[Rfam]
RNA sequence: GCAGAGUUCUAAGUACUAGCGCCGCAGGAGUGUAUGUCCACUACUAAUACUCCUGCAGCCCUGGUGCUUCUGACUCCAA
Numbered sequence: 001g002c003a004g005a006g007u008u009c010u011a012a013g014u015a016c017u018a019g020c021g022c023c024g025c026a027g028g029a030g031u032g033u034a035u036g037u038c039c040a041c042u043a044c045u046a047a048u049a050c051u052c053c054u055g056c057a058g059c060c061c062u063g064g065u066g067c068u069u070c071u072g073a074c075u076c077c078a079a
Stems, first nucleotide, its partner, number of pairs: 004076004011069009024056007

A member of the RNA family "mir-252 microRNA precursor family" from Oppiella nova, 79 nucleotides long. Taxonomically the source falls in Oppiella (Eukaryota, Bilateria, Acari, Oribatida). A search with the family's covariance model found it, with a score of 47 bits. The literature on the family includes a 2009 paper in BMC Genomics by Li et al., "Direct sequencing and expression analysis of a large number of miRNAs in Aedes aegypti and a multi-species survey of novel mosquito miRNAs".